[Rfam]
RNA sequence: GAAGCCGCGAGGCGACGUCUGGAGGAAGCGGUGAGCAAAACUGCGAGCUGAUGAACAAGAACGUCAUAUCAGGCGUAGGCCGGAGGCGAGAUGGCACAAGACAUCGAAGCCGCGUGAUUCAACGGCCACCGUAAAUGGCGCAGUUGUGCAGUGAAAGUUCAUGUC
Numbered sequence: 001g002a003a004g005c006c007g008c009g010a011g012g013c014g015a016c017g018u019c020u021g022g023a024g025g026a027a028g029c030g031g032u033g034a035g036c037a038a039a040a041c042u043g044c045g046a047g048c049u050g051a052u053g054a055a056c057a058a059g060a061a062c063g064u065c066a067u068a069u070c071a072g073g074c075g076u077a078g079g080c081c082g083g084a085g086g087c088g089a090g091a092u093g094g095c096a097c098a099a100g101a102c103a104u105c106g107a108a109g110c111c112g113c114g115u116g117a118u119u120c121a122a123c124g125g126c127c128a129c130c131g132u133a134a135a136u137g138g139c140g141c142a143g144u145u146g147u148g149c150a151g152u153g154a155a156a157g158u159u160c161a162u163g164u165c
Base pairs, nucleotide, nucleotide: 001016004013005012006011028165031162032161035158036157040152041151042150043149044148045147046145047144048143049142050141062140063139064138065137066136067135073132074131075130078127079126080125081124083123085111086110087109090105091104092103093102

Background: This 165-nucleotide RNA belongs to the Rfam family "Group II catalytic intron D1-D4-3". Its family is annotated with Group II intron splicing in the Gene Ontology.